Nucleotides: 295
Base pairs, nucleotide, nucleotide: 012036013035014034015033019031020030021029024263025262026261039143040142043140044139045138046137047135048134049130050129051128052127053126054125055124056123059120188289191286192285193284194283195282196281207280208279209278210277211276212275213239214238215237218233219232220231221230244274249269250268251267252266253265
Number, partner (000 for none) and nucleotide at each position: 001000g002000g003000a004000g005000u006000c007000c008000c009000u010000g011000u012036a013035g014034g015033g016000u017000a018000a019031g020030g021029c022000c023000u024263a025262a026261c027000c028000a029021g030020c031019c032000a033015c034014c035013c036012u037000u038000a039143g040142c041000g042000a043140g044139u045138g046137u047135u048134g049130c050129g051128c052127g053126u054125a055124g056123u057000g058000c059120g060000g061000a062000g063000c064000a065000u066000c067000g068000g069000g070000a071000g072000a073000g074000a075000g076000a077000a078000u079000a080000c081000u082000c083000u084000c085000c086000a087000g088000u089000c090000a091000g092000c093000a094000g095000u096000u097000u098000u099000u100000u101000a102000c103000u104000g105000c106000u107000a108000u109000c110000a111000a112000c113000g114000g115000g116000c117000g118000a119000a120059c121000a122000a123056g124055c125054u126053a127052u128051g129050u130049g131000a132000a133000g134048c135047a136000u137046a138045c139044a140043c141000a142040g143039c144000g145000a146000a147000c148000a149000a150000u151000a152000u153000a154000g155000g156000c157000c158000g159000u160000a161000g162000g163000g164000g165000a166000a167000c168000c169000g170000u171000g172000u173000c174000c175000c176000u177000g178000a179000a180000g181000c182000a183000c184000u185000g186000g187000u188289a189000u190000c191286g192285c193284u194283c195282c196281g197000a198000a199000a200000g201000g202000c203000a204000g205000u206000u207280u208279c209278g210277u211276c212275u213239g214238a215237c216000g217000a218233g219232a220231u221230u222000u223000g224000u225000a226000a227000c228000g229000c230221g231220a232219u233218c234000g235000a236000a237215g238214u239213c240000a241000a242000u243000a244274u245000g246000g247000a248000u249269c250268a251267g252266c253265c254000g255000u256000u257000a258000a259000u260000g261026g262025u263024u264000u265253g266252g267251u268250u269249g270000u271000g272000a273000a274244g275212a276211g277210g278209c279208g280207g281196c282195g283194g284193a285192g286191u287000u288000a289188u290000c291000a292000a293000g294000u295000c

Overview:
Group II catalytic intron D1-D4-6: a 295-nucleotide RNA sequence from Exilibacterium tricleocarpae. Rfam describes the family as follows. Group II introns are found in rRNA, tRNA and mRNA of organelles in fungi, plants and protists, and also in mRNA in bacteria. NCBI's taxonomy places the organism under Bacteria, Pseudomonadota, Cellvibrionales, Cellvibrionaceae, Exilibacterium. The literature on the family includes a 2003 paper in Crit Rev Biochem Mol Biol by Lehmann and Schmidt, "Group II introns: structure and catalytic versatility of large natural ribozymes".